[Rfam]
RNA sequence: AAGAAAGUGACUGCCGCCCCGCACAGGGGCGAAGCGAAUAGACCAAUAACAACGCAAGUUUCAUAGGAGCACAAGCGCAUCAAACGGCGUAAACCCCACAACCCCAAGCGCCAGCG
Numbered sequence: 001a002a003g004a005a006a007g008u009g010a011c012u013g014c015c016g017c018c019c020c021g022c023a024c025a026g027g028g029g030c031g032a033a034g035c036g037a038a039u040a041g042a043c044c045a046a047u048a049a050c051a052a053c054g055c056a057a058g059u060u061u062c063a064u065a066g067g068a069g070c071a072c073a074a075g076c077g078c079a080u081c082a083a084a085c086g087g088c089g090u091a092a093a094c095c096c097c098a099c100a101a102c103c104c105c106a107a108g109c110g111c112c113a114g115c116g
Stems, first nucleotide, its partner, number of pairs: 011087003015031006058078001108115002
The record is a 116-nucleotide RNA from Caballeronia glathei, which matches "Burkholderia sRNA Bp1_Cand684_SIPHT" in Rfam. The literature on the family includes a 2012 paper in BMC Genomics by Khoo et al., "Computational discovery and RT-PCR validation of novel Burkholderia conserved and Burkholderia pseudomallei unique sRNAs". The base pairs follow the family's consensus structure, which was predicted with RNAalifold. By type it is a small RNA.